[Rfam]
RNA sequence: UCAGACGGUCGGAUGGCCGCCUUCCGGGCAACCGGGGGGAGGAAAGUCCGGGCUCCACGGAAACAUGGUGCCGGGUAACGCCCGGCGGGGGCGACCCCAGGGAAAGUGCCACAGAGAGCAGACCGCCCGUCCCGCCUUCGGGCGCGGCGGGUAAGGGUGAAAGGGUGCGGUAAGAGCGCACCGCGGUCCCGGCGACGGGAACGGCACGGUAAACCCCACCAGGAGCAAGACCGAAUAGGGAUGGCACGCAGGUUCGCUUUGAUGCGGGCCGGCAGGCGGGUUCCGCGCCGCCGUCCGGGUUGGUCGCGCGAGGCGUCCGGUAACGGGCGUCCCAGAUGAAUGGCCAUCCCCCGCCACCCGCGCGCAAGCGCCGGCGGGGACAGAACCCGGCUUACAGACCGCCUGACCCC
Numbered sequence: 001u002c003a004g005a006c007g008g009u010c011g012g013a014u015g016g017c018c019g020c021c022u023u024c025c026g027g028g029c030a031a032c033c034g035g036g037g038g039g040a041g042g043a044a045a046g047u048c049c050g051g052g053c054u055c056c057a058c059g060g061a062a063a064c065a066u067g068g069u070g071c072c073g074g075g076u077a078a079c080g081c082c083c084g085g086c087g088g089g090g091g092c093g094a095c096c097c098c099a100g101g102g103a104a105a106g107u108g109c110c111a112c113a114g115a116g117a118g119c120a121g122a123c124c125g126c127c128c129g130u131c132c133c134g135c136c137u138u139c140g141g142g143c144g145c146g147g148c149g150g151g152u153a154a155g156g157g158u159g160a161a162a163g164g165g166u167g168c169g170g171u172a173a174g175a176g177c178g179c180a181c182c183g184c185g186g187u188c189c190c191g192g193c194g195a196c197g198g199g200a201a202c203g204g205c206a207c208g209g210u211a212a213a214c215c216c217c218a219c220c221a222g223g224a225g226c227a228a229g230a231c232c233g234a235a236u237a238g239g240g241a242u243g244g245c246a247c248g249c250a251g252g253u254u255c256g257c258u259u260u261g262a263u264g265c266g267g268g269c270c271g272g273c274a275g276g277c278g279g280g281u282u283c284c285g286c287g288c289c290g291c292c293g294u295c296c297g298g299g300u301u302g303g304u305c306g307c308g309c310g311a312g313g314c315g316u317c318c319g320g321u322a323a324c325g326g327g328c329g330u331c332c333c334a335g336a337u338g339a340a341u342g343g344c345c346a347u348c349c350c351c352c353g354c355c356a357c358c359c360g361c362g363c364g365c366a367a368g369c370g371c372c373g374g375c376g377g378g379g380a381c382a383g384a385a386c387c388c389g390g391c392u393u394a395c396a397g398a399c400c401g402c403c404u405g406a407c408c409c410c
Base pairs, nucleotide, nucleotide: 001406002405003404004403006401007400008399009398010397011395012348013347014346015345016344017343018342020039021038022037023036024035025034026033027032044393045392046391048390049389050388051387052386053225054224055223056222063282066221067220068219069218070217071085072084073083074082075081086100087098088097089096090095101216102215106214107213108210109209110208123156124155125152126151127150128149129148130147131146133144134143135142136141164182165181166180167179168178169177183205184203185202187200188199189198190197191196229305230304231303232302239296240295241294242293243292244291275289276288277287278286312331313330314329315328316327317326318325319324
The record is a 410-nucleotide sequence from Oceanibaculum indicum, which matches "Bacterial RNase P class A" in Rfam. Rfam classes the family as a ribozyme. The organism belongs to Oceanibaculum indicum, within Bacteria. A search with the family's covariance model found it, with a score of 286 bits.